[Rfam]
A member of the RNA family "Plastid-psbN 5UTR RNA" from Ricinus communis, 61 nucleotides long. A reference for the family is Richter et al. (2023), "Retrograde signaling in plants: A critical review focusing on the GUN pathway and beyond", Plant Commun. The source organism's lineage runs through Eukaryota, Euphyllophyta, Magnoliopsida, fabids and Ricinus. Rfam's curators write: Plastid psbN is a non-coding RNA (ncRNA) recognised in plastids. It was reported as a conserved 11 stem-loop in the prime untranslated region (5UTR) of psbN genes. It has been reported that the motif is retained in a subset of mature transcripts in barley, which can suggests a possible role in transcript alternative 5 prime processing. The match comes from Rfam's covariance-model search (72 bits).
RNA sequence: UGCAACACCCAUCAAAGAAGUAGUUCCUUAUCCAGGAGCUACUUUGUCAUAUUUUAAAUUC
Number, nucleotide and partner (000 for none) at each position: 001u000002g000003c000004a000005a000006c000007a000008c000009c000010c000011a000012u000013c000014a000015a000016a000017g045018a044019a043020g042021u041022a040023g039024u038025u037026c036027c035028u000029u000030a000031u000032c000033c000034a000035g027036g026037a025038g024039c023040u022041a021042c020043u019044u018045u017046g000047u000048c000049a000050u000051a000052u000053u000054u000055u000056a000057a000058a000059u000060u000061c000